[Rfam]
RNA sequence: GUUUAUCUUCAGGGCAGGGUGUAAUUCCCGACCGGCGGUAAAGCCCGCGACUCCCAUUAUUGGGACUGACUUGGUGUGAUUCCAAGGCCGAUAGUUAUAGUCUAGAUGGUAGAAGAUGGAU
Numbered sequence: 001g002u003u004u005a006u007c008u009u010c011a012g013g014g015c016a017g018g019g020u021g022u023a024a025u026u027c028c029c030g031a032c033c034g035g036c037g038g039u040a041a042a043g044c045c046c047g048c049g050a051c052u053c054c055c056a057u058u059a060u061u062g063g064g065a066c067u068g069a070c071u072u073g074g075u076g077u078g079a080u081u082c083c084a085a086g087g088c089c090g091a092u093a094g095u096u097a098u099a100g101u102c103u104a105g106a107u108g109g110u111a112g113a114a115g116a117u118g119g120a121u
Base pairs, nucleotide, nucleotide: 003119004118005117006116007115008114009113010112017029018028019027031101032100033090034089035048036047037046038045043088044087052065053064070086071085072084073083074082092104093103094102